Shown here is a 97-nucleotide RNA from Cognatundibacterium rugosum, a member of the family "Burkholderia RNA 7 (anti-hemB)".
Its family is annotated with bacterial biofilm matrix and protein binding in the Gene Ontology.
Rfam's curators write: This RNA motif was identified by computational search in b-proteobacteria Burkholderia. Co-purified with Hfq, expression confirmed by Northern blot.
A search with the family's covariance model found it, with a score of 51 bits.
Taxonomically the source falls in Cognatundibacterium (Bacteria, Pseudomonadota, Betaproteobacteria, Oxalobacteraceae).
It is annotated as a small RNA.

[Rfam]
RNA sequence: CCUACCGCUUCUCCUCCCUGAGCGGGACACCAUUCGUCCCUAUUCGAACUGGUGUUACUUUCCCCGGCAACAUCAUACGAUGCCGGGGAUUUUUUUU
Numbered sequence: 001c002c003u004a005c006c007g008c009u010u011c012u013c014c015u016c017c018c019u020g021a022g023c024g025g026g027a028c029a030c031c032a033u034u035c036g037u038c039c040c041u042a043u044u045c046g047a048a049c050u051g052g053u054g055u056u057a058c059u060u061u062c063c064c065c066g067g068c069a070a071c072a073u074c075a076u077a078c079g080a081u082g083c084c085g086g087g088g089a090u091u092u093u094u095u096u097u
Base pairs, nucleotide, nucleotide: 005025006024007023008022009021029053030052031051032050034047035046036045062088063087064086065085066084067083068082069081
Dot-bracket structure: ....(((((...........)))))...((((.(((........)))..))))........((((((((...........)))))))).........